Rfam assigns this 88-nucleotide sequence from Paenibacillus albiflavus to the family "BsrC". For this family Rfam cites "Novel small RNA-encoding genes in the intergenic regions of Bacillus subtilis" (Saito et al., Gene, 2008). Taxonomically the source falls in Paenibacillus (Bacteria, Bacillota, Caryophanales, Paenibacillaceae). Rfam's curators write: The 301 nucleotide sequence from Kouji Nakamura has been trimmed to a highly conserved ~85 nucleotide long core to form this family.

RNA sequence: UAACACUAAAACAACGAAAGCCCUACCUCUCAAUCGUUCUUACGGUUCCUAGACCGCGCCAGUUAUGAAUUAGUUACAUGAGAUAAAA
Numbered sequence: 001u002a003a004c005a006c007u008a009a010a011a012c013a014a015c016g017a018a019a020g021c022c023c024u025a026c027c028u029c030u031c032a033a034u035c036g037u038u039c040u041u042a043c044g045g046u047u048c049c050u051a052g053a054c055c056g057c058g059c060c061a062g063u064u065a066u067g068a069a070u071u072a073g074u075u076a077c078a079u080g081a082g083a084u085a086a087a088a
Base pairs, nucleotide, nucleotide: 034068035067036066039062040061041058043056044055045054046053047052
The family's consensus secondary structure was predicted with CMfinder.